About this RNA
This 60-nucleotide RNA belongs to the Rfam family "Streptococcus sRNA SpF59 (ldcC RNA)". By type it is a small RNA. For this family Rfam cites "Control of virulence by small RNAs in Streptococcus pneumoniae" (Mann et al., PLoS Pathog, 2012).
RNA sequence: UGACCACUUUCAAAAGCGAUUUGAGAGGUUAAGCCUACGGACAGGCCGGUCAACUGCCGC
Numbered sequence: 001u002g003a004c005c006a007c008u009u010u011c012a013a014a015a016g017c018g019a020u021u022u023g024a025g026a027g028g029u030u031a032a033g034c035c036u037a038c039g040g041a042c043a044g045g046c047c048g049g050u051c052a053a054c055u056g057c058c059g060c
Stems, first nucleotide, its partner, number of pairs: 001052005007027008